[Rfam]
RNA sequence: GCAGACUCACUCUGUACUGAACUGCAGUCUUCAGUUCACGUGCUUUUUCUGUCUGCAAGAGUAACAGUUCACAGGAGUGACAAUUGCCUUCUUUCUUGUAGAAGGCUGUUACUAUUGCUGUUGGGACAUUGCU
Numbered sequence: 001g002c003a004g005a006c007u008c009a010c011u012c013u014g015u016a017c018u019g020a021a022c023u024g025c026a027g028u029c030u031u032c033a034g035u036u037c038a039c040g041u042g043c044u045u046u047u048u049c050u051g052u053c054u055g056c057a058a059g060a061g062u063a064a065c066a067g068u069u070c071a072c073a074g075g076a077g078u079g080a081c082a083a084u085u086g087c088c089u090u091c092u093u094u095c096u097u098g099u100a101g102a103a104g105g106c107u108g109u110u111a112c113u114a115u116u117g118c119u120g121u122u123g124g125g126a127c128a129u130u131g132c133u
Base pairs, nucleotide, nucleotide: 001056002055003054004053005052006051014043015042016041017040018038019037020036022034023033024032068124069123071121072120073119074118077115078114079113082110086106087105088104089103

About this RNA
The family of this 133-nucleotide sequence from Piaya cayana is "Small nucleolar RNA SNORA77". Its family is annotated with nucleolus and RNA processing in the Gene Ontology. The base pairs follow the family's consensus structure, which was predicted with RNAalifold. Rfam 15.1 lists 843 matches to the family in 607 species. Rfam's curators write: ACA63 (SNORA77) is a member of the H/ACA class of snoRNAs that guide the sites of modification of uridines to pseudouridines. This snoRNA was identified by computational screening and its expression in mouse experimentally verified by Northern blot and primer extension analysis. ACA63 is proposed to guide the pseudouridylation of 18S rRNA U814. Rfam classes the family as an H/ACA-box small nucleolar RNA. For this family Rfam cites "A computational screen for mammalian pseudouridylation guide H/ACA RNAs" (Schattner et al., RNA, 2006).